[Rfam]
RNA sequence: GGUUGCUGGGCAACUUGCAAUUGGAGCUACAUACAGGGGCUUGUUCCCUUCUUGGGCUCUAGGGAAGGUCCCCAGACACAGGGCAGUGAGUGUCCCCCGCAGUAAGGGCAGGCACCCAGACCCCUUGGCCCCUUUACUGGCUGUGAAGUGUAUACUGAGCCGGGGCUGGGUCUGGUAAUAGUCAGAGCACAGUUAUGCAAGUGGUGUUGACAAACACUCACUCAAUGGGGCCUAUGCUUAGCAAC
Numbered sequence: 001g002g003u004u005g006c007u008g009g010g011c012a013a014c015u016u017g018c019a020a021u022u023g024g025a026g027c028u029a030c031a032u033a034c035a036g037g038g039g040c041u042u043g044u045u046c047c048c049u050u051c052u053u054g055g056g057c058u059c060u061a062g063g064g065a066a067g068g069u070c071c072c073c074a075g076a077c078a079c080a081g082g083g084c085a086g087u088g089a090g091u092g093u094c095c096c097c098c099g100c101a102g103u104a105a106g107g108g109c110a111g112g113c114a115c116c117c118a119g120a121c122c123c124c125u126u127g128g129c130c131c132c133u134u135u136a137c138u139g140g141c142u143g144u145g146a147a148g149u150g151u152a153u154a155c156u157g158a159g160c161c162g163g164g165g166c167u168g169g170g171u172c173u174g175g176u177a178a179u180a181g182u183c184a185g186a187g188c189a190c191a192g193u194u195a196u197g198c199a200a201g202u203g204g205u206g207u208u209g210a211c212a213a214a215c216a217c218u219c220a221c222u223c224a225a226u227g228g229g230g231c232c233u234a235u236g237c238u239u240a241g242c243a244a245c
Base pairs, nucleotide, nucleotide: 002245003244004243005242006241007240009239010238013202014201015200016199017198018197021062022061023060024059025058026057027056035050036049037048038047039046066233067232068231070230071229072228073227082094083093084092085091096112097111099109100108116175117174118173119172120171121170122169123168128166129165130164131163138162139161140160141159148155149154204217205216206215207214208213

A member of the RNA family "RNase MRP" from Dreissena polymorpha, 245 nucleotides long. It scores 112 bits against the family's covariance model.